RNA sequence: CUGAGAUAAAGGCAAGGUAUUUGAAAAAAUACUCACGCAAAGCUUCAGGUCUAACAAUUUAAUUAAAUUUAUGAUGGCUGAGUUUCCUAG
Numbered sequence: 001c002u003g004a005g006a007u008a009a010a011g012g013c014a015a016g017g018u019a020u021u022u023g024a025a026a027a028a029a030u031a032c033u034c035a036c037g038c039a040a041a042g043c044u045u046c047a048g049g050u051c052u053a054a055c056a057a058u059u060u061a062a063u064u065a066a067a068u069u070u071a072u073g074a075u076g077g078c079u080g081a082g083u084u085u086c087c088u089a090g
Stems, first nucleotide, its partner, number of pairs: 012038002017032006041084004046080003049075003056069004
Shown here is a 90-nucleotide RNA from Pseudoalteromonas denitrificans, a member of the family "c-di-GMP-I riboswitch aptamer". GEMM was predicted in a large-scale screen for bacterial structured RNA regulatory elements.